[Rfam]
RNA sequence: UAAUAAAUGUAGGGGGGCUGGUGAAGCUGGCUGAGAUUGUAUCCGUAUGAUACUGACCCUUAGAACCUGAUCUGGUUGGUACCAGCGGAGGGAACAUAAUCAUAUUUUUC
Numbered sequence: 001u002a003a004u005a006a007a008u009g010u011a012g013g014g015g016g017g018c019u020g021g022u023g024a025a026g027c028u029g030g031c032u033g034a035g036a037u038u039g040u041a042u043c044c045g046u047a048u049g050a051u052a053c054u055g056a057c058c059c060u061u062a063g064a065a066c067c068u069g070a071u072c073u074g075g076u077u078g079g080u081a082c083c084a085g086c087g088g089a090g091g092g093a094a095c096a097u098a099a100u101c102a103u104a105u106u107u108u109u110c
Stems, first nucleotide, its partner, number of pairs: 007097004011060004016054001017031005039053004066091003072085004
RNA: TPP riboswitch aptamer (THI element)